[Rfam]
RNA sequence: CAAACGGCUCCUUUAGGAGCCACCAAAUGUCAAUAAAGCAAUGAC
Numbered sequence: 001c002a003a004a005c006g007g008c009u010c011c012u013u014u015a016g017g018a019g020c021c022a023c024c025a026a027a028u029g030u031c032a033a034u035a036a037a038g039c040a041a042u043g044a045c
Stems, first nucleotide, its partner, number of pairs: 006021006
Histone 3' UTR stem-loop: a 45-nucleotide sequence from Desmophyllum pertusum. The mRNAs of metazoan histone genes lack a poly-A tail. 3' end processing occurs at a site between a highly conserved stem-loop (modelled by this family) and a purine rich region around 20 nts downstream (the histone downstream element, or HDE). The stem-loop is bound by a 31 kDa stem-loop binding protein (SLBP - also termed the histone hairpin binding protein, or HBP). Together with U7 snRNA binding of the HDE, SLBP binding nucleate s the formation of the processing complex. The match comes from Rfam's covariance-model search (37 bits). Taxonomically the source falls in Desmophyllum (Eukaryota, Opisthokonta, Cnidaria, Scleractinia).